This 58-nucleotide RNA from Escherichia fergusonii belongs to the Rfam family "Enterobacterial sRNA STnc450". NCBI's taxonomy places the organism under Bacteria, Gammaproteobacteria, Enterobacteriaceae, Escherichia, Escherichia fergusonii.
[Rfam]
RNA sequence: CGCUAUACUAGCCACUGAAAAUGCUGGUUCACUUCCUUCGAACCAGUUUUCAAUGUGU
Numbered sequence: 001c002g003c004u005a006u007a008c009u010a011g012c013c014a015c016u017g018a019a020a021a022u023g024c025u026g027g028u029u030c031a032c033u034u035c036c037u038u039c040g041a042a043c044c045a046g047u048u049u050u051c052a053a054u055g056u057g058u
Stems, first nucleotide, its partner, number of pairs: 002012004016052004023047008